[Rfam]
RNA: Phenylalanine leader peptide
Organism: Providencia rettgeri
RNA sequence: UAUGAAUCUUAAUUUUGUUUUCUUUUUCUUCUUUAGCAACUCCUAAUUGGGGGCUUUUGUCGUUCGAGAAAGAAAAGAAGACAAAAUUAGAAAGCCCCCUCUAGGGGGCUUUUUUUAU
Numbered sequence: 001u002a003u004g005a006a007u008c009u010u011a012a013u014u015u016u017g018u019u020u021u022c023u024u025u026u027u028c029u030u031c032u033u034u035a036g037c038a039a040c041u042c043c044u045a046a047u048u049g050g051g052g053g054c055u056u057u058u059g060u061c062g063u064u065c066g067a068g069a070a071a072g073a074a075a076a077g078a079a080g081a082c083a084a085a086a087u088u089a090g091a092a093a094g095c096c097c098c099c100u101c102u103a104g105g106g107g108g109c110u111u112u113u114u115u116u117a118u
Base pairs, nucleotide, nucleotide: 012087013086014085015084017082018081019080020079021078022077023076024075026074027073028072029071030070033067034066036064040051041050042049052061053060054059091112092111093110094109095108096107097106098105099104